Shown here is a 73-nucleotide RNA from Danio rerio, a member of the family "mir-219 microRNA precursor family". A reference for the family is Lai et al. (2003), "Computational identification of Drosophila microRNA genes", Genome Biol. The family's consensus secondary structure was predicted with RNAalifold. Taxonomically the source falls in Danio (Eukaryota, Deuterostomia, Craniata, Danioninae). The sequence is in the family's curated seed alignment. Rfam 15.1 lists 1,318 matches to the family in 774 species.

[Rfam]
RNA sequence: UGAUUGUCCAAACGCAAUUCUUGUGAAAUGUCGAGCGAUCAGUCGAGAAUUGUGCCUGGACAUCUGUUGCUGG
Numbered sequence: 001u002g003a004u005u006g007u008c009c010a011a012a013c014g015c016a017a018u019u020c021u022u023g024u025g026a027a028a029u030g031u032c033g034a035g036c037g038a039u040c041a042g043u044c045g046a047g048a049a050u051u052g053u054g055c056c057u058g059g060a061c062a063u064c065u066g067u068u069g070c071u072g073g
Base pairs, nucleotide, nucleotide: 002064003063004062006061007060008059009058010057013054014053015052016051017050018049019048020047021046022045023044